[Rfam]
RNA sequence: GGCCGAGUAGCAAAGUGGUUACUGCGACGGCUUUAGGAUUCCUAAUCCGCCGUUAUUCGUGGGUUCGAACCCCACCUUGGUCA
Numbered sequence: 001g002g003c004c005g006a007g008u009a010g011c012a013a014a015g016u017g018g019u020u021a022c023u024g025c026g027a028c029g030g031c032u033u034u035a036g037g038a039u040u041c042c043u044a045a046u047c048c049g050c051c052g053u054u055a056u057u058c059g060u061g062g063g064u065u066c067g068a069a070c071c072c073c074a075c076c077u078u079g080g081u082c083a
Stems, first nucleotide, its partner, number of pairs: 001082007010025003027053005059075005
Annotation:
This 83-nucleotide sequence from Malassezia restricta belongs to the Rfam family "tRNA". Gene Ontology term of the family: triplet codon-amino acid adaptor activity. It is annotated as a transfer RNA. A search with the family's covariance model found it, with a score of 53 bits. Pairs were carried over by alignment from the consensus structure, which is taken from published work. Lineage of the source: Eukaryota > Opisthokonta > Dikarya > Malasseziales > Malassezia restricta.